Record summary
Rfam assigns this 69-nucleotide sequence from Channa argus to the family "miR-430 microRNA precursor family". The family is grouped with related families in Rfam's "mir-290 clan". Pairs were carried over by alignment from the consensus structure, which was predicted with RNAalifold.
RNA sequence: AUUAUUACCCUAAAUUGAGCACUAACUUGAUGGUUGAUUCAGUAAGUGCUUCUUUUUAGGGCAGUUUUG
Numbered sequence: 001a002u003u004a005u006u007a008c009c010c011u012a013a014a015u016u017g018a019g020c021a022c023u024a025a026c027u028u029g030a031u032g033g034u035u036g037a038u039u040c041a042g043u044a045a046g047u048g049c050u051u052c053u054u055u056u057u058a059g060g061g062c063a064g065u066u067u068u069g
Stems, first nucleotide, its partner, number of pairs: 004065003008061004013056002017052001018050006025043003

Notes:
The organism belongs to Channa, within Eukaryota.